[Rfam]
RNA: Z6 small nucleolar RNA
RNA sequence: UGCUGGUGGUGAAGCUUCCUCACUCUGAACACUGGGCCUUGCCAGGGGUAAGCUAGCG
Numbered sequence: 001u002g003c004u005g006g007u008g009g010u011g012a013a014g015c016u017u018c019c020u021c022a023c024u025c026u027g028a029a030c031a032c033u034g035g036g037c038c039u040u041g042c043c044a045g046g047g048g049u050a051a052g053c054u055a056g057c058g
Stems, first nucleotide, its partner, number of pairs: 001058007